[Rfam]
RNA sequence: UGCGAUGAGUCGAGUAAGUCUCGGUAGGCAACUAUUCUGCGAAGGCAGCUAGGAGACCCAAAGAUACAGGAUACCACGGUUAUUCAUUUAACCACUUGCCGUAUUGCAAGGGUGUUUUCGCCCGCUGUGUUGUGGAGCAC
Numbered sequence: 001u002g003c004g005a006u007g008a009g010u011c012g013a014g015u016a017a018g019u020c021u022c023g024g025u026a027g028g029c030a031a032c033u034a035u036u037c038u039g040c041g042a043a044g045g046c047a048g049c050u051a052g053g054a055g056a057c058c059c060a061a062a063g064a065u066a067c068a069g070g071a072u073a074c075c076a077c078g079g080u081u082a083u084u085c086a087u088u089u090a091a092c093c094a095c096u097u098g099c100c101g102u103a104u105u106g107c108a109a110g111g112g113u114g115u116u117u118u119c120g121c122c123c124g125c126u127g128u129g130u131u132g133u134g135g136a137g138c139a140c
Base pairs, nucleotide, nucleotide: 018057019056020055021054022053023036024035025034026033027032037048038047039046040045071115072114073113074112075111095110096109097108098107099106128139129138130137131136
Overview: This 140-nucleotide sequence from Latilactobacillus curvatus belongs to the Rfam family "Enterococcus sRNA 68 (Lacto-3 RNA)". Rfam's curators put it in the seed alignment. A reference for the family is Innocenti et al. (2015), "Whole-genome mapping of 5' RNA ends in bacteria by tagged sequencing: a comprehensive view in Enterococcus faecalis", RNA.